[Rfam]
RNA: NoRC associated RNA, pRNA
RNA sequence: UAAUGGUGGCCAUUUUGGGGAAAGAUAUCUGUCUCGUGCAUUUCUGAGUUGGCCUGUGGCCGGUGACUAGACCCCUGUCCCCUGUGU
Numbered sequence: 001u002a003a004u005g006g007u008g009g010c011c012a013u014u015u016u017g018g019g020g021a022a023a024g025a026u027a028u029c030u031g032u033c034u035c036g037u038g039c040a041u042u043u044c045u046g047a048g049u050u051g052g053c054c055u056g057u058g059g060c061c062g063g064u065g066a067c068u069a070g071a072c073c074c075c076u077g078u079c080c081c082c083u084g085u086g087u
Base pairs, nucleotide, nucleotide: 004084006082008081009080012078018076019075020074028066029065030063034059035058036057037056038055